[Rfam]
RNA sequence: UUGUAUAAAAGGCAAACCACUCGAAAGGGUGGGACGCAAAGCCAUGGGUCUAAACCUUUAAGGCAUGACUGCCAGGCUGCCGUG
Numbered sequence: 001u002u003g004u005a006u007a008a009a010a011g012g013c014a015a016a017c018c019a020c021u022c023g024a025a026a027g028g029g030u031g032g033g034a035c036g037c038a039a040a041g042c043c044a045u046g047g048g049u050c051u052a053a054a055c056c057u058u059u060a061a062g063g064c065a066u067g068a069c070u071g072c073c074a075g076g077c078u079g080c081c082g083u084g
Stems, first nucleotide, its partner, number of pairs: 012037002017032006040078004045074003048069003055063003
A member of the RNA family "c-di-GMP-I riboswitch aptamer" from Desulfotruncus arcticus, 84 nucleotides long. It scores 85 bits against the family's covariance model. Rfam links the family to the GO term cyclic-di-GMP binding. Taxonomically the source falls in Desulfotruncus arcticus (Bacteria, Bacillota, Clostridia, Eubacteriales). The family's consensus secondary structure is taken from published work.